[Rfam]
RNA sequence: GCGAUAUGAAGAUAGAAUUCAUGUCUGUCAAUCCACUGAUUAAUUCUGAUGUCAACAGUGAAUCCCGACAGGUUCUGAUCGC
Numbered sequence: 001g002c003g004a005u006a007u008g009a010a011g012a013u014a015g016a017a018u019u020c021a022u023g024u025c026u027g028u029c030a031a032u033c034c035a036c037u038g039a040u041u042a043a044u045u046c047u048g049a050u051g052u053c054a055a056c057a058g059u060g061a062a063u064c065c066c067g068a069c070a071g072g073u074u075c076u077g078a079u080c081g082c
Stems, first nucleotide, its partner, number of pairs: 001082004
Small nucleolar RNA snoR14: an 82-nucleotide sequence from Dorcoceras hygrometricum. Rfam links the family to the GO terms nucleolus and RNA processing. It scores 80 bits against the family's covariance model. Rfam 15.1 lists 668 matches to the family in 221 species. The literature on the family includes a 2001 paper in RNA by Brown et al., "Multiple snoRNA gene clusters from Arabidopsis". The base pairs follow the family's consensus structure. Rfam classes the family as a C/D-box small nucleolar RNA.